[Rfam]
RNA sequence: GUGUGGGCUUAGCCGUGUGGUUACUUCGUUAAUCUGAAAUCUCGUUGAAUUCUUCAUACCUGGCAAACCUCUGGCGCUGUCCCGCACACUU
Number, nucleotide and partner (000 for none) at each position: 001g000002u086003g085004u084005g083006g082007g081008c000009u000010u000011a000012g075013c074014c073015g072016u000017g071018u000019g069020g068021u000022u000023a000024c000025u067026u066027c000028g064029u063030u062031a061032a000033u000034c000035u000036g000037a000038a000039a000040u000041c000042u000043c000044g000045u000046u000047g000048a000049a000050u000051u000052c000053u000054u000055c000056a000057u000058a000059c000060c000061u031062g030063g029064c028065a000066a026067a025068c020069c019070u000071c017072u015073g014074g013075c012076g000077c000078u000079g000080u000081c007082c006083c005084g004085c003086a002087c000088a000089c000090u000091u000
RNA: Vault RNA